[Rfam]
RNA sequence: GUUGAGCUUAGUAGCGUGAGCUUGUAACUUGAGCAGGGGCAUAAAGGUGAUGGAACUAUGGUUCAACUCAACAGGUGGGGUGCAUGGUGGCUACUAAUUAACCUGCCCAUUCCAAGCCAAGGGUUAAGCCAUGUGACUUGAGCGAAGGUUUUGGGUCUCAUGGUUUCUAGAGUGAAGGGAACUACGUGAGGCUGGUUUCAUAAAGUGGUAAUUACCUCCUGCCCCUAGCAGUGGAAGGAUUACGGGUCGAUGCUUUACCUGGAUCCAUCAAGGCCUGUUGAGUUCAUCCUAAAUGGACCAUCACCUUU
Numbered sequence: 001g002u003u004g005a006g007c008u009u010a011g012u013a014g015c016g017u018g019a020g021c022u023u024g025u026a027a028c029u030u031g032a033g034c035a036g037g038g039g040c041a042u043a044a045a046g047g048u049g050a051u052g053g054a055a056c057u058a059u060g061g062u063u064c065a066a067c068u069c070a071a072c073a074g075g076u077g078g079g080g081u082g083c084a085u086g087g088u089g090g091c092u093a094c095u096a097a098u099u100a101a102c103c104u105g106c107c108c109a110u111u112c113c114a115a116g117c118c119a120a121g122g123g124u125u126a127a128g129c130c131a132u133g134u135g136a137c138u139u140g141a142g143c144g145a146a147g148g149u150u151u152u153g154g155g156u157c158u159c160a161u162g163g164u165u166u167c168u169a170g171a172g173u174g175a176a177g178g179g180a181a182c183u184a185c186g187u188g189a190g191g192c193u194g195g196u197u198u199c200a201u202a203a204a205g206u207g208g209u210a211a212u213u214a215c216c217u218c219c220u221g222c223c224c225c226u227a228g229c230a231g232u233g234g235a236a237g238g239a240u241u242a243c244g245g246g247u248c249g250a251u252g253c254u255u256u257a258c259c260u261g262g263a264u265c266c267a268u269c270a271a272g273g274c275c276u277g278u279u280g281a282g283u284u285c286a287u288c289c290u291a292a293a294u295g296g297a298c299c300a301u302c303a304c305c306u307u308u
Stems, first nucleotide, its partner, number of pairs: 001040003004023007028037003043308011056295001059291002061288001063286001065284002068281009078266004083261002086258001088257003092252002098250002101247005107238002110236005116229002119226001121224004126166008135157006141150003167172001174219001176217003186209002193202002
The family of this 308-nucleotide sequence from Castanea mollissima is "Plant signal recognition particle RNA". The family's RNA type in Rfam is non-coding RNA gene. The family has 63 seed sequences and 4,988 matches in Rfam 15.1. It scores 197 bits against the family's covariance model. The base pairs follow the family's consensus structure, which is taken from published work. Taxonomically the source falls in Castanea (Eukaryota, Streptophyta, rosids, Fagales). The literature on the family includes a 2002 paper in Nucleic Acids Res by Regalia et al., "Prediction of signal recognition particle RNA genes".